[Rfam]
RNA: mir-2568 microRNA precursor family
RNA sequence: GGAGGUCUAUCAGAGCAAACUUCCUCGGGUCGUUGGGGUUCCUUCGAAAAGACAACGGCACGAGGAUGUUGCUUAUGAUGCAUUUCC
Numbered sequence: 001g002g003a004g005g006u007c008u009a010u011c012a013g014a015g016c017a018a019a020c021u022u023c024c025u026c027g028g029g030u031c032g033u034u035g036g037g038g039u040u041c042c043u044u045c046g047a048a049a050a051g052a053c054a055a056c057g058g059c060a061c062g063a064g065g066a067u068g069u070u071g072c073u074u075a076u077g078a079u080g081c082a083u084u085u086c087c
Stems, first nucleotide, its partner, number of pairs: 002086005009079004015072004020068001022066006029059007